[Rfam]
Rfam assigns this 193-nucleotide RNA from Anopheles gambiae to the family "U4atac minor spliceosomal RNA". Rfam 15.1 lists 1,648 matches to the family in 818 species. Rfam links the family to the GO terms U4atac snRNP, pre-mRNA 5'-splice site binding and spliceosomal tri-snRNP complex assembly. U4atac is an essential component of the minor U12-type spliceosome complex which is required for removal of the rarer class of eukaryotic introns (AT-AC, U12-type). The source organism's lineage runs through Eukaryota, Eumetazoa, Panorpida, Anophelinae and Anopheles gambiae. The family is grouped with related families in Rfam's "U4 clan". The literature on the family includes a 2005 paper in RNA by Lorkovic et al., "Evolutionary conservation of minor U12-type spliceosome between plants and humans". Rfam classes the family as a spliceosomal small nuclear RNA.
RNA sequence: UUCUUCCUUGUCUUGGGGAGCAUAAUGUCCAGUGAACGUGUAGUGAGGGCAUUGAUGCUGACAAACCCAUCUUAAAGAGCAGGAUCUUGAAGGUCCUGUUUCUUUGUAAACCCCCGUCCGUCGGUUCGCUUUCAAACAGCUGUACCAGGUGGUCGGAAUUUUUGAAGCGUCCCUUUACUUUACAAGGGAUGUG
Number, nucleotide and partner (000 for none) at each position: 001u000002u000003c000004u000005u019006c018007c017008u016009u015010g000011u000012c000013u000014u000015g009016g008017g007018g006019a005020g058021c057022a056023u055024a053025a052026u051027g050028u049029c048030c047031a000032g000033u000034g000035a000036a044037c043038g000039u000040g000041u000042a000043g037044u036045g000046a000047g030048g029049g028050c027051a026052u025053u024054g000055a023056u022057g021058c020059u000060g000061a000062c000063a000064a000065a000066c000067c000068c000069a000070u000071c000072u000073u000074a000075a000076a000077g000078a000079g000080c000081a000082g000083g000084a000085u000086c000087u000088u000089g000090a000091a000092g000093g000094u000095c000096c000097u000098g000099u000100u000101u000102c000103u000104u000105u000106g000107u000108a000109a000110a000111c000112c000113c000114c156115c155116g154117u000118c152119c151120g000121u000122c000123g000124g145125u144126u000127c142128g140129c139130u000131u000132u000133c000134a000135a000136a000137c000138a000139g129140c128141u000142g127143u000144a125145c124146c000147a000148g000149g000150u000151g119152g118153u000154c116155g115156g114157a000158a000159u000160u000161u000162u000163u000164g000165a000166a000167g000168c000169g000170u000171c000172c000173c000174u000175u000176u000177a000178c000179u000180u000181u000182a000183c000184a000185a000186g000187g000188g000189a000190u000191g000192u000193g000